[Rfam]
RNA sequence: UGGACCACUGAUGACGACUGGUUCAUAUGAGUUAUGAAUAAUGAAUAAGAUGAAUCUGGAAUUCUGAGGUUUAA
Numbered sequence: 001u002g003g004a005c006c007a008c009u010g011a012u013g014a015c016g017a018c019u020g021g022u023u024c025a026u027a028u029g030a031g032u033u034a035u036g037a038a039u040a041a042u043g044a045a046u047a048a049g050a051u052g053a054a055u056c057u058g059g060a061a062u063u064c065u066g067a068g069g070u071u072u073a074a
Stems, first nucleotide, its partner, number of pairs: 002072005
Dot-bracket structure: .(((((.............................................................)))))..
RNA: Small nucleolar RNA SNORD113/SNORD114 family
Organism: Myotis myotis